[Rfam]
RNA sequence: GGCAGGGUUAGCAGGCUGAUAUUGUCGGGCGGGGUGUGGAACAAGUAAGUCAUUUCGGCGAUGAGAUCAGCCUGUCGAACCCUGC
Numbered sequence: 001g002g003c004a005g006g007g008u009u010a011g012c013a014g015g016c017u018g019a020u021a022u023u024g025u026c027g028g029g030c031g032g033g034g035u036g037u038g039g040a041a042c043a044a045g046u047a048a049g050u051c052a053u054u055u056c057g058g059c060g061a062u063g064a065g066a067u068c069a070g071c072c073u074g075u076c077g078a079a080c081c082c083u084g085c
Stems, first nucleotide, its partner, number of pairs: 002085007011075010022064005033056002036053003
Shown here is an 85-nucleotide RNA from Apis mellifera, a member of the family "mir-6012 microRNA precursor family". It is one of the family's seed sequences. Its family is annotated with miRNA-mediated post-transcriptional gene silencing and RISC complex in the Gene Ontology. The source organism's lineage runs through Eukaryota, Bilateria, Protostomia, Hymenoptera and Apis.